[Rfam]
RNA sequence: UUGGCGGAUAGGAACCAGGUCAUGCCUGUGUGUUACUUGGGCCGAAAACCGCCAAUAUCAUCGUUUGAUGUUUUAAUGGUCGUAUGUGUUAUCGAAACGUAGCAUGUAUAUUACCAAAAUAUCUUACAAUC
Numbered sequence: 001u002u003g004g005c006g007g008a009u010a011g012g013a014a015c016c017a018g019g020u021c022a023u024g025c026c027u028g029u030g031u032g033u034u035a036c037u038u039g040g041g042c043c044g045a046a047a048a049c050c051g052c053c054a055a056u057a058u059c060a061u062c063g064u065u066u067g068a069u070g071u072u073u074u075a076a077u078g079g080u081c082g083u084a085u086g087u088g089u090u091a092u093c094g095a096a097a098c099g100u101a102g103c104a105u106g107u108a109u110a111u112u113a114c115c116a117a118a119a120u121a122u123c124u125u126a127c128a129a130u131c
Stems, first nucleotide, its partner, number of pairs: 003053005011043002015040006022033004067123008078115003082109002085106008
The family of this 131-nucleotide sequence from Cylicocyclus nassatus is "Nematode snoRNA ceN39". The source organism's lineage runs through Eukaryota, Nematoda, Strongyloidea, Strongylidae and Cylicocyclus. A reference for the family is Jia et al. (2007), "Systematic identification of non-coding RNA 2,2,7-trimethylguanosine cap structures in Caenorhabditis elegans", BMC Mol Biol. By type it is an H/ACA-box small nucleolar RNA.